[Rfam]
RNA sequence: AAGAGAUAAAGGCAAACCUAUUGAAAGAUAGGGACGCAAAGUCACAGAUCUAAGGUCGUCAACGUAGAAAGUAUGUACUAAGAUGGCUGGACUUCCUAC
Numbered sequence: 001a002a003g004a005g006a007u008a009a010a011g012g013c014a015a016a017c018c019u020a021u022u023g024a025a026a027g028a029u030a031g032g033g034a035c036g037c038a039a040a041g042u043c044a045c046a047g048a049u050c051u052a053a054g055g056u057c058g059u060c061a062a063c064g065u066a067g068a069a070a071g072u073a074u075g076u077a078c079u080a081a082g083a084u085g086g087c088u089g090g091a092c093u094u095c096c097u098a099c
Base pairs, nucleotide, nucleotide: 012037013036017032018031019030020029021028022027040093041092042091043090045089046088047087048084049083050082055078056077
The family of this 99-nucleotide RNA from Bacillus sp. DNRA2 is "c-di-GMP-I riboswitch aptamer".
From the family's description: GEMM was predicted in a large-scale screen for bacterial structured RNA regulatory elements. Genes associated with GEMM are involved in a diverse array of functions, including chemotaxis regulation, signal transduction, secretion and chitin.